Record summary: Shown here is a 140-nucleotide RNA from Acanthisitta chloris, a member of the family "Small nucleolar RNA SNORA14". About the family: ACA14 is a member of the H/ACA class of snoRNA that guide the sites of modification of uridines to pseudouridines. The source organism's lineage runs through Eukaryota, Eumetazoa, Sauropsida, Archelosauria and Acanthisitta. The match comes from Rfam's covariance-model search (87 bits). Rfam classes the family as an H/ACA-box small nucleolar RNA. The base pairs follow the family's consensus structure, which was predicted with RNAfold.
RNA sequence: CUGCAUUCUAAACCCUCCUGGCAGCUCUGCCCUUGGCUGCCAGGGUAAGGAUGAAUGCCAGAGAAAACUGUUGAUUAAUCCAAAGCGCAGAGCUCUUUCCCCUGUGGCUCUUCGUUAUUUCACGUCUUCAACAUUGAUUU
Numbered sequence: 001c002u003g004c005a006u007u008c009u010a011a012a013c014c015c016u017c018c019u020g021g022c023a024g025c026u027c028u029g030c031c032c033u034u035g036g037c038u039g040c041c042a043g044g045g046u047a048a049g050g051a052u053g054a055a056u057g058c059c060a061g062a063g064a065a066a067a068c069u070g071u072u073g074a075u076u077a078a079u080c081c082a083a084a085g086c087g088c089a090g091a092g093c094u095c096u097u098u099c100c101c102c103u104g105u106g107g108c109u110c111u112u113c114g115u116u117a118u119u120u121c122a123c124g125u126c127u128u129c130a131a132c133a134u135u136g137a138u139u140u
Stems, first nucleotide, its partner, number of pairs: 003058004007051003016045006023038003062140003069130002073126002084116004089111002092108002099104001